[Rfam]
RNA: Small nucleolar RNA SNORA51
RNA sequence: AGCCUCCUGGUGCUUACCACAGGCUAUGUUCUUACACUGACUAUAGAAAGAGGAGGGAAAGAAAACCUACCCCAUAUAUGCCUCAGCCCAGUCCCUCUGCCUGGACUGUAGUCUAUAUUUUGAAUGGGAAAACAUGG
Numbered sequence: 001a002g003c004c005u006c007c008u009g010g011u012g013c014u015u016a017c018c019a020c021a022g023g024c025u026a027u028g029u030u031c032u033u034a035c036a037c038u039g040a041c042u043a044u045a046g047a048a049a050g051a052g053g054a055g056g057g058a059a060a061g062a063a064a065a066c067c068u069a070c071c072c073c074a075u076a077u078a079u080g081c082c083u084c085a086g087c088c089c090a091g092u093c094c095c096u097c098u099g100c101c102u103g104g105a106c107u108g109u110a111g112u113c114u115a116u117a118u119u120u121u122g123a124a125u126g127g128g129a130a131a132a133c134a135u136g137g
Stems, first nucleotide, its partner, number of pairs: 003056006021042002027036003071128005085114002088111001089108005
Dot-bracket structure: ..((((((............((....(((....)))....))........))))))..............(((((.........((.((((((..........)))))..).)).........))))).........